Rfam assigns this 155-nucleotide RNA sequence from Drosophila kikkawai to the family "Hsp90 cis-regulatory element". The family's consensus secondary structure is taken from published work. About the family: The hsp90 gene product is involved in the Drosophila heat shock response and translation of the hsp90 mRNA is very inefficient under normal growth temperatures. When heat shock occurs translation becomes more efficient. This family represents a section of the Drosophila hsp90 mRNA 5' UTR that is required for increased translational efficiency during the heat shock response. The exact mechanism of action unknown. Gene Ontology terms of the family: response to temperature stimulus and regulation of translation. The match comes from Rfam's covariance-model search (82 bits). Taxonomically the source falls in Sophophora (Eukaryota, Panarthropoda, Neoptera, Ephydroidea).

[Rfam]
RNA sequence: AGUCUUGAAAAAUUUCGUUCGGUGUGCGUCGACAGUCAACGUCUGUUUGCGAAGCGAAAUAAGUUUGUGAAUUUCUCAUUCUUGCAACAAAGCAAAGUGAAAAUUUAUACAUUUUUACCUUUAUUCUGUGAAUAGAAAGAAUAACAUACAAGGUG
Dot-bracket structure: .((((((.....(((((.(((..(...(..............)...)..)))..)))))......((((...(((...((((.....((.((.(((((((((((......))))))).))))...)).))...)))).)))...)))))))))).